RNA sequence: AUAUACACUGAGUGGCCAGAUGAUUAUGCAUUCAAAGAUCAUCAUCAUCUGGCCACUCAGUGUAUGU
Numbered sequence: 001a002u003a004u005a006c007a008c009u010g011a012g013u014g015g016c017c018a019g020a021u022g023a024u025u026a027u028g029c030a031u032u033c034a035a036a037g038a039u040c041a042u043c044a045u046c047a048u049c050u051g052g053c054c055a056c057u058c059a060g061u062g063u064a065u066g067u
Stems, first nucleotide, its partner, number of pairs: 004064014019049006026042003
Source information:
Shown here is a 67-nucleotide RNA sequence from Pipistrellus kuhlii, a member of the family "mir-9256 microRNA precursor family". Its family is annotated with RISC complex and miRNA-mediated post-transcriptional gene silencing in the Gene Ontology. The base pairs follow the family's consensus structure, which was predicted with RNAalifold.